The record is a 100-nucleotide RNA from Lentilactobacillus buchneri, which matches "TPP riboswitch aptamer (THI element)" in Rfam. The base pairs follow the family's consensus structure, which is taken from published work. Vitamin B(1) in its active form thiamin pyrophosphate (TPP) is an essential coenzyme that is synthesised by coupling of pyrimidine and thiazole moieties in bacteria.
[Rfam]
RNA sequence: AGAUAACAUUAGGGGAGCCAAUCGGCUGAGACGGAACAUCUUCGGACCCUUCGAACCUGAUCUGGUUUGCGCCAGCGUAGGGAAGUGUUAAAAGAAGCCA
Numbered sequence: 001a002g003a004u005a006a007c008a009u010u011a012g013g014g015g016a017g018c019c020a021a022u023c024g025g026c027u028g029a030g031a032c033g034g035a036a037c038a039u040c041u042u043c044g045g046a047c048c049c050u051u052c053g054a055a056c057c058u059g060a061u062c063u064g065g066u067u068u069g070c071g072c073c074a075g076c077g078u079a080g081g082g083a084a085g086u087g088u089u090a091a092a093a094g095a096a097g098c099c100a
Stems, first nucleotide, its partner, number of pairs: 006088005011050004017026003033043003056081004062075004